[Rfam]
RNA sequence: GACUCGCACAGGUCAAUUUCAUGUGCCUAGAGACAACCGGAUAAUAACGGGGACGGAAGCCUCACCGCGCUAGUGAGCACUCAAUCAGUAUCCUUAACAGGACCACGAUCGCAAAUUGCCGCGGUUUGAUUGUUU
Numbered sequence: 001g002a003c004u005c006g007c008a009c010a011g012g013u014c015a016a017u018u019u020c021a022u023g024u025g026c027c028u029a030g031a032g033a034c035a036a037c038c039g040g041a042u043a044a045u046a047a048c049g050g051g052g053a054c055g056g057a058a059g060c061c062u063c064a065c066c067g068c069g070c071u072a073g074u075g076a077g078c079a080c081u082c083a084a085u086c087a088g089u090a091u092c093c094u095u096a097a098c099a100g101g102a103c104c105a106c107g108a109u110c111g112c113a114a115a116u117u118g119c120c121g122c123g124g125u126u127u128g129a130u131u132g133u134u135u
Base pairs, nucleotide, nucleotide: 006026007025008024009023010022037050038049039048041045061077062076063075064074082132083131084130085129086128092101093100107126108125109124110123111122112121
The record is a 135-nucleotide sequence, which matches "Polynucleobacter-1 RNA" in Rfam.